[Rfam]
RNA sequence: AUGACCGUACUUGAACAGGAUCUGUUCUAUAGGUCAUACACCUGUCUGUGUUCUUCAACUCAGACAAGUUCCUCAACCCAGACGAAGACAUGCAGCCCCGGCGCCUGAGCGCUACGUAUGACCACUGUGGCCGUGCCGCUGGCACGGACGCGUGGUUCUGGAUGAACGUCCCGCCGAGACCAUUCCACCGGCAGGGAUGGUGCUCGGGGCAUUCAGAUGGGU
Dot-bracket structure: (((.((......((((((...))))))....))).)).....((.(((.((......)).))).)).........(((((...............((((((((((...............((((((((..(.(((((...)))))).))).)))))............(((.((((............)))).)))..)))).))))))........)))))
Numbered sequence: 001a002u003g004a005c006c007g008u009a010c011u012u013g014a015a016c017a018g019g020a021u022c023u024g025u026u027c028u029a030u031a032g033g034u035c036a037u038a039c040a041c042c043u044g045u046c047u048g049u050g051u052u053c054u055u056c057a058a059c060u061c062a063g064a065c066a067a068g069u070u071c072c073u074c075a076a077c078c079c080a081g082a083c084g085a086a087g088a089c090a091u092g093c094a095g096c097c098c099c100g101g102c103g104c105c106u107g108a109g110c111g112c113u114a115c116g117u118a119u120g121a122c123c124a125c126u127g128u129g130g131c132c133g134u135g136c137c138g139c140u141g142g143c144a145c146g147g148a149c150g151c152g153u154g155g156u157u158c159u160g161g162a163u164g165a166a167c168g169u170c171c172c173g174c175c176g177a178g179a180c181c182a183u184u185c186c187a188c189c190g191g192c193a194g195g196g197a198u199g200g201u202g203c204u205c206g207g208g209g210c211a212u213u214c215a216g217a218u219g220g221g222u
Stems, first nucleotide, its partner, number of pairs: 001037002003034001005033002013027006043066002046063003050059002076222005096209006102202004121156005126150003131146001133145005169196003173192004